RNA: Plastid-clpP 5UTR RNA
RNA sequence: CAAUUCUGUUUGUAGGAACAAAGAUAAGCAGAUCUAUUCUAUACCCGAUAAGUACUAAUACGCAAUGGGGA
Numbered sequence: 001c002a003a004u005u006c007u008g009u010u011u012g013u014a015g016g017a018a019c020a021a022a023g024a025u026a027a028g029c030a031g032a033u034c035u036a037u038u039c040u041a042u043a044c045c046c047g048a049u050a051a052g053u054a055c056u057a058a059u060a061c062g063c064a065a066u067g068g069g070g071a
Stems, first nucleotide, its partner, number of pairs: 004023002007020005044069003052061003